Nucleotides: 114
Stems, first nucleotide, its partner, number of pairs: 001114002004111002007108005014101002018097003037077002040074001049063002
Number, partner (000 for none) and nucleotide at each position: 001114g002113u003000g004111g005110g006000u007108u008107a009106c010105g011104g012000a013000g014101a015100c016000a017000u018097g019096a020095g021000a022000c023000c024000g025000g026000u027000g028000a029000c030000a031000g032000u033000a034000g035000g036000g037077g038076g039000g040074a041000a042000a043000a044000u045000u046000g047000u048000g049063g050062g051000g052000u053000c054000c055000u056000u057000a058000u059000g060000c061000g062050c063049u064000a065000u066000c067000g068000c069000u070000g071000g072000g073000g074040u075000g076038u077037u078000g079000a080000c081000c082000a083000u084000u085000g086000c087000c088000c089000u090000a091000c092000c093000g094000g095020u096019u097018c098000c099000c100015g101014u102000g103000a104011u105010c106009g107008u108007a109000u110005c111004c112000a113002a114001c
A member of the RNA family "Potassium channel RNA editing signal" from Scleropages formosus, 114 nucleotides long. The base pairs follow the family's consensus structure, which is taken from published work. Rfam 15.1 lists 14,095 matches to the family in 1,000 species. Lineage of the source: Eukaryota > Bilateria > Craniata > Actinopterygii > Scleropages. Gene Ontology term of the family: adenosine to inosine editing. By type it is a cis-regulatory element. This family represents a group of sequences related to the human potassium channel Kv1.1 hairpin element which directs the efficient modification of an adenosine to inosine by an adenosine deaminase acting on RNA (ADAR). The ADAR modification causes an isoleucine/valine recoding event which lies in the ion-conducting pore of the potassium channel. It is thought that this editing event targets the process of fast inactivation and allows a more rapid recovery from inactivation at negative potentials.